[Rfam]
RNA sequence: GCGCGACAGGAAGUCGGGCAAGAUGUCGGCCUGCAAUCUGCAGUCCGCCUGAUCGGUAUCUGCUUUCCUUUGACCACGGAUGUACUGGCACUGCCGGAAGCAGGUAUCACUUUGAGGCCAGGCAGUUUGCCUGGCCUUUUUCGUU
Numbered sequence: 001g002c003g004c005g006a007c008a009g010g011a012a013g014u015c016g017g018g019c020a021a022g023a024u025g026u027c028g029g030c031c032u033g034c035a036a037u038c039u040g041c042a043g044u045c046c047g048c049c050u051g052a053u054c055g056g057u058a059u060c061u062g063c064u065u066u067c068c069u070u071u072g073a074c075c076a077c078g079g080a081u082g083u084a085c086u087g088g089c090a091c092u093g094c095c096g097g098a099a100g101c102a103g104g105u106a107u108c109a110c111u112u113u114g115a116g117g118c119c120a121g122g123c124a125g126u127u128u129g130c131c132u133g134g135c136c137u138u139u140u141u142c143g144u145u
Base pairs, nucleotide, nucleotide: 004055005054006053007051008050009049016046017045018044019043059104060103061102062101063100064099065098068093071090072089074088075087076086106144107143109141114138115137116136117135118134119133120132121131122130123129124128
RNA: Alphaproteobacterial sRNA ar35